RNA sequence: UGCUUCUUUCUUCGGGGCGGAGCUCGACCGCCAGCACAAGAGAUAGUCGCGUUCAUCGACGCCAACCGGCACGAGUUCUUCGAUGGCCGUCAGAUCGGGGUCGAGCCCAUCUGCACUGUCCUGCGUCAGGCAGGAGUGCAAGUGGCCCCG
Dot-bracket structure: ...............(((((.......)))))...............................................................(((((......((.(.(((((...................))))).).)))))))
RNA: ALIL pseudoknot